[Rfam]
RNA sequence: AAUGAUACUUUCCCGAACCUUGCAUUUUCGGGAGCUGCGUUAGCAGGAAUAAUUCGCAGCGGAAGCAUCGCCAAGGCUGAAAAAGGCCAUGGGGAGCUUUC
Numbered sequence: 001a002a003u004g005a006u007a008c009u010u011u012c013c014c015g016a017a018c019c020u021u022g023c024a025u026u027u028u029c030g031g032g033a034g035c036u037g038c039g040u041u042a043g044c045a046g047g048a049a050u051a052a053u054u055c056g057c058a059g060c061g062g063a064a065g066c067a068u069c070g071c072c073a074a075g076g077c078u079g080a081a082a083a084a085g086g087c088c089a090u091g092g093g094g095a096g097c098u099u100u101c
Base pairs, nucleotide, nucleotide: 011033012032013031014030015029016028017027034060035059036058037057038056039055061101062100063099064098065097066096069094073090075088076087077086

Rfam assigns this 101-nucleotide RNA sequence to the family "dinG RNA". Rfam's curators put it in the seed alignment. Rfam classes the family as a small RNA.